[Rfam]
Overview: Rfam assigns this 255-nucleotide RNA sequence from Streptomyces echinoruber to the family "Streptomyces sRNA 4677". The family has 12 seed sequences and 563 matches in Rfam 15.1. A search with the family's covariance model found it, with a score of 76 bits. On this family, see Hindra et al., PLoS One 2014: "Complex intra-operonic dynamics mediated by a small RNA in Streptomyces coelicolor". Rfam classes the family as a small RNA. Located in the intergenic region between anti-sigma factor SCO4677 gene and a putative regulatory protein gene SCO4676. scr4677 expression requires the SCO4677 activity and scr4677 sRNA itself seem to affect the levels of the SCO4676-associated transcripts.

RNA sequence: CGGCCCGGCGCGCGAUCAAAGCUUUCAAAGACCCUUGGGUGAAUAACCCGCCCAACCCCACCCCACCGAACCGCCCCAGGCCCCCCGGCACCCCGUCACCCGGAAGAGUGGUGAUCCCAACUCGGCUGGAUUCCGGCCCGGUUCCCCGGCAUAUGCUCGCCGCGACCACACCAUCGCAGACAUGCGACGGCCCCCGGCCAGGAGUAGCGAUCCUGAUCGAGGGCCUGACCACCAAGGAAGCGUAGGCCCUUCCCG
Numbered sequence: 001c002g003g004c005c006c007g008g009c010g011c012g013c014g015a016u017c018a019a020a021g022c023u024u025u026c027a028a029a030g031a032c033c034c035u036u037g038g039g040u041g042a043a044u045a046a047c048c049c050g051c052c053c054a055a056c057c058c059c060a061c062c063c064c065a066c067c068g069a070a071c072c073g074c075c076c077c078a079g080g081c082c083c084c085c086c087g088g089c090a091c092c093c094c095g096u097c098a099c100c101c102g103g104a105a106g107a108g109u110g111g112u113g114a115u116c117c118c119a120a121c122u123c124g125g126c127u128g129g130a131u132u133c134c135g136g137c138c139c140g141g142u143u144c145c146c147c148g149g150c151a152u153a154u155g156c157u158c159g160c161c162g163c164g165a166c167c168a169c170a171c172c173a174u175c176g177c178a179g180a181c182a183u184g185c186g187a188c189g190g191c192c193c194c195c196g197g198c199c200a201g202g203a204g205u206a207g208c209g210a211u212c213c214u215g216a217u218c219g220a221g222g223g224c225c226u227g228a229c230c231a232c233c234a235a236g237g238a239a240g241c242g243u244a245g246g247c248c249c250u251u252c253c254c255g
Stems, first nucleotide, its partner, number of pairs: 007233002010230001096111004101106001125161001127159003189225005195219002200214004236253005
NCBI's taxonomy places the organism under Bacteria, Actinomycetota, Actinomycetes, Kitasatosporales, Streptomyces.